[Rfam]
RNA sequence: UGGCUGUGAUGACAAUAAGAUAACUUCUUCAUACCUUAAUUUCAGUUUAAGGACCAAAUCUGAUGACUUUAUUUGUGCGUGUCUGAGCCGG
Numbered sequence: 001u002g003g004c005u006g007u008g009a010u011g012a013c014a015a016u017a018a019g020a021u022a023a024c025u026u027c028u029u030c031a032u033a034c035c036u037u038a039a040u041u042u043c044a045g046u047u048u049a050a051g052g053a054c055c056a057a058a059u060c061u062g063a064u065g066a067c068u069u070u071a072u073u074u075g076u077g078c079g080u081g082u083c084u085g086a087g088c089c090g091g
Stems, first nucleotide, its partner, number of pairs: 001090004
A member of the RNA family "small nucleolar RNA snoR126" from Triticum aestivum, 91 nucleotides long. The family's consensus secondary structure was predicted with RNAalifold. The family has 4 seed sequences and 423 matches in Rfam 15.1. The source organism's lineage runs through Eukaryota, Streptophytina, Mesangiospermae, commelinids and Triticum. On this family, see Chen and Wu, Nucleic Acids Res 2009: "Mining small RNA sequencing data: a new approach to identify small nucleolar RNAs in Arabidopsis".